[Rfam]
RNA sequence: AGCCUAUGAUGGUUUCAGUCUAUGAUCAGAGUAGUAGACAGAAGUGAUUUCUGAAAACUCCAUGCUGAGGCU
Numbered sequence: 001a002g003c004c005u006a007u008g009a010u011g012g013u014u015u016c017a018g019u020c021u022a023u024g025a026u027c028a029g030a031g032u033a034g035u036a037g038a039c040a041g042a043a044g045u046g047a048u049u050u051c052u053g054a055a056a057a058c059u060c061c062a063u064g065c066u067g068a069g070g071c072u
Stems, first nucleotide, its partner, number of pairs: 001072004